[Rfam]
RNA sequence: AGGUUUGGGGGGGGGGCCCCCCCCCCAAACCUCCAAACCUUUUUUUUUUUUUUUAAAAAAAAAAAAAAAGGUUUGGAGGUUUGGGGGGGGGGCCCCCCCCCCAAACCU
Numbered sequence: 001a002g003g004u005u006u007g008g009g010g011g012g013g014g015g016g017c018c019c020c021c022c023c024c025c026c027a028a029a030c031c032u033c034c035a036a037a038c039c040u041u042u043u044u045u046u047u048u049u050u051u052u053u054u055a056a057a058a059a060a061a062a063a064a065a066a067a068a069a070g071g072u073u074u075g076g077a078g079g080u081u082u083g084g085g086g087g088g089g090g091g092g093c094c095c096c097c098c099c100c101c102c103a104a105a106c107c108u
Base pairs, nucleotide, nucleotide: 002107003106006103007102009100010099011098012097013096014095015094016093017092018091019090020089021088023086024085025084026083027082028081029080030079031078032077034075035074037072038071039070040069041068042067043066044065045064046063047062048061049060050059051058

mir-1684 microRNA precursor family: a 108-nucleotide RNA sequence from Buteo japonicus.
The organism belongs to Buteo, within Eukaryota.